[Rfam]
Annotation:
RpsF leader: an 88-nucleotide RNA from Chelonobacter oris. Rfam classes the family as a cis-regulatory leader.
RNA sequence: UCACAUUCCAUAUUCGUUCCUUGCUUCCGCAGAUUGGUGACUGGUCUACCGUCGGAGGCUGAUUAACCCGUAAGGAGCAGCAGCAAUG
Numbered sequence: 001u002c003a004c005a006u007u008c009c010a011u012a013u014u015c016g017u018u019c020c021u022u023g024c025u026u027c028c029g030c031a032g033a034u035u036g037g038u039g040a041c042u043g044g045u046c047u048a049c050c051g052u053c054g055g056a057g058g059c060u061g062a063u064u065a066a067c068c069c070g071u072a073a074g075g076a077g078c079a080g081c082a083g084c085a086a087u088g
Stems, first nucleotide, its partner, number of pairs: 016078007023059006